[Rfam]
RNA sequence: GUUGGCUAUGGCGACAUGAGACCUGUUGGUAUAUGGGGUAAAAUUGUCGGUUCUAUGUGUGCUAUUGCCGGCGUUCUGACCAUCGCUCUCCCUGUACCUGUCAUCGUUUCCAAU
Numbered sequence: 001g002u003u004g005g006c007u008a009u010g011g012c013g014a015c016a017u018g019a020g021a022c023c024u025g026u027u028g029g030u031a032u033a034u035g036g037g038g039u040a041a042a043a044u045u046g047u048c049g050g051u052u053c054u055a056u057g058u059g060u061g062c063u064a065u066u067g068c069c070g071g072c073g074u075u076c077u078g079a080c081c082a083u084c085g086c087u088c089u090c091c092c093u094g095u096a097c098c099u100g101u102c103a104u105c106g107u108u109u110c111c112a113a114u
Stems, first nucleotide, its partner, number of pairs: 001114002004111002008107004013102004018097001020095001037077002040074001049063003
The family of this 114-nucleotide RNA sequence from Didymodactylos carnosus is "Potassium channel RNA editing signal". From the family's description: This family represents a group of sequences related to the human potassium channel Kv1.1 hairpin element which directs the efficient modification of an adenosine to inosine by an adenosine deaminase acting on RNA (ADAR). The ADAR modification causes an isoleucine/valine recoding event which lies in the ion-conducting pore of the potassium channel. The family has 85 seed sequences and 14,095 matches in Rfam 15.1. The source organism's lineage runs through Eukaryota, Metazoa, Protostomia, Bdelloidea and Didymodactylos.